Rfam assigns this 101-nucleotide sequence to the family "TPP riboswitch aptamer (THI element)". It scores 55 bits against the family's covariance model. Gene Ontology term of the family: thiamine pyrophosphate binding. Vitamin B(1) in its active form thiamin pyrophosphate (TPP) is an essential coenzyme that is synthesised by coupling of pyrimidine and thiazole moieties in bacteria.
RNA sequence: UCUCGGGCGAACGAGUGGACGCGCGCGACCGCGCGUUCUGAGAAAUAUCGUCGGAACUUGAUCGAGGUAAUACUUGCGCAAGGAUCGCCCGAAGAGACGCG
Numbered sequence: 001u002c003u004c005g006g007g008c009g010a011a012c013g014a015g016u017g018g019a020c021g022c023g024c025g026c027g028a029c030c031g032c033g034c035g036u037u038c039u040g041a042g043a044a045a046u047a048u049c050g051u052c053g054g055a056a057c058u059u060g061a062u063c064g065a066g067g068u069a070a071u072a073c074u075u076g077c078g079c080a081a082g083g084a085u086c087g088c089c090c091g092a093a094g095a096g097a098c099g100c101g
Base pairs, nucleotide, nucleotide: 006089007088008087009086010085011051012050013049014048016045017038018037019036020035021034022033023032024031057082058081059080060079063076064075065074066073